[Rfam]
RNA sequence: CCUCUUCGAUCUGCUGUGGGCAGAUGAAGUGGAUGUGGGUAUCGAUGCCGCCGGCGGUGAGGAUCAUGCCCUCGCCGGCGAUCACCUCGGUGGCGCCGCCGAUGGCGAUGCUCACGCCGGGCUGGAUGUCCGGGUUGCCGGCCUUGCCGAUGGCGGCGAUGCGCCCGUCCUUGAGGCCGACGUCGGCCUUGACGAUGCCCCAGUGGUCGAGGAUCAGCGCAUUGGUGAUGACCGUGUCGACCACCUCGGCGGCGCCCAGUUGGCCCUGGCCCAUGCCGUCGCGGAUG
Numbered sequence: 001c002c003u004c005u006u007c008g009a010u011c012u013g014c015u016g017u018g019g020g021c022a023g024a025u026g027a028a029g030u031g032g033a034u035g036u037g038g039g040u041a042u043c044g045a046u047g048c049c050g051c052c053g054g055c056g057g058u059g060a061g062g063a064u065c066a067u068g069c070c071c072u073c074g075c076c077g078g079c080g081a082u083c084a085c086c087u088c089g090g091u092g093g094c095g096c097c098g099c100c101g102a103u104g105g106c107g108a109u110g111c112u113c114a115c116g117c118c119g120g121g122c123u124g125g126a127u128g129u130c131c132g133g134g135u136u137g138c139c140g141g142c143c144u145u146g147c148c149g150a151u152g153g154c155g156g157c158g159a160u161g162c163g164c165c166c167g168u169c170c171u172u173g174a175g176g177c178c179g180a181c182g183u184c185g186g187c188c189u190u191g192a193c194g195a196u197g198c199c200c201c202a203g204u205g206g207u208c209g210a211g212g213a214u215c216a217g218c219g220c221a222u223u224g225g226u227g228a229u230g231a232c233c234g235u236g237u238c239g240a241c242c243a244c245c246u247c248g249g250c251g252g253c254g255c256c257c258a259g260u261u262g263g264c265c266c267u268g269g270c271c272c273a274u275g276c277c278g279u280c281g282c283g284g285a286u287g
Stems, first nucleotide, its partner, number of pairs: 001287001003285001005283001007281003012158006018076002022072002030053003034050002037048001039046002057069003077148002081144001085140001090138005095130001097128001099125002102123001106119001107117001165269003170263002173260001176257001178254001186220002189217003200209001223252001225250001230247002234244003
Rfam assigns this 287-nucleotide sequence from Pseudomonas sp. BAY1663 to the family "5' ureB small RNA". Rfam 15.1 lists 4,812 matches to the family in 4,480 species. Its family is annotated with negative regulation of gene expression in the Gene Ontology. The source organism's lineage runs through Bacteria, Pseudomonadota, Gammaproteobacteria, Pseudomonadaceae and Pseudomonas. For this family Rfam cites "Helicobacter pylori 5'ureB-sRNA, a cis-encoded antisense small RNA, negatively regulates ureAB expression by transcription termination" (Wen et al., J Bacteriol, 2013).